[Rfam]
RNA sequence: AUGAUUUUCGGGAAUGAAGUUCUCCCAGAGUAGAAAUACGAAAACCGCUGAAACAGCUGAUGACUUCUGCAAUUUA
Dot-bracket structure: .........[[[[..((((((.]]]]....................(((.....)))....)))))).........
The record is a 76-nucleotide RNA sequence from Roseburia zhanii, which matches "Fluoride riboswitch aptamer (crcB RNA motif)" in Rfam.
It scores 49 bits against the family's covariance model.
Its family is annotated with positive regulation of gene expression and response to fluoride in the Gene Ontology.